A member of the RNA family "mir-5904 microRNA precursor family" from Haemonchus contortus, 82 nucleotides long.
The base pairs follow the family's consensus structure, which was predicted with RNAalifold.
RNA sequence: GCUUCCCCGUUUUCGAGUGUCGUGGUGGCUUUUACAAACUGAAGUAUUGUAAACCCUCUACUUCACUUCGAAAAUAAGAAGG
Numbered sequence: 001g002c003u004u005c006c007c008c009g010u011u012u013u014c015g016a017g018u019g020u021c022g023u024g025g026u027g028g029c030u031u032u033u034a035c036a037a038a039c040u041g042a043a044g045u046a047u048u049g050u051a052a053a054c055c056c057u058c059u060a061c062u063u064c065a066c067u068u069c070g071a072a073a074a075u076a077a078g079a080a081g082g
Stems, first nucleotide, its partner, number of pairs: 002081004009075008017066003022061004027056002031053007038045002
Dot-bracket structure: .((((...(((((((((((..((((.((..(((((((((....)).))))))).)).))))..))).))))))))..)))).